The record is a 45-nucleotide sequence from Pseudomonas sp. FeS53a, which matches "Guanidine-II riboswitch aptamer (mini-ykkC)" in Rfam. Lineage of the source: Bacteria > Gammaproteobacteria > Pseudomonadales > Pseudomonadaceae > Pseudomonas. Rfam's curators write: Simpler in structure and has fewer highly conserved nucleotide positions than the ykkC-yxkD leader. Despite this each of its two stem-loop structures directly bind free guanidine. Therefore, mini-ykkC RNA motif represents a distinct class of guanidine-sensing RNAs. Its crystal structure was also determined.
[Rfam]
RNA sequence: AGCCACGGACGACCGUGGUGCAGACGAACAAGGCGGGACGGCCCG
Numbered sequence: 001a002g003c004c005a006c007g008g009a010c011g012a013c014c015g016u017g018g019u020g021c022a023g024a025c026g027a028a029c030a031a032g033g034c035g036g037g038a039c040g041g042c043c044c045g
Stems, first nucleotide, its partner, number of pairs: 002019007034045004
Dot-bracket structure: .(((((((....)))))))..............((((....))))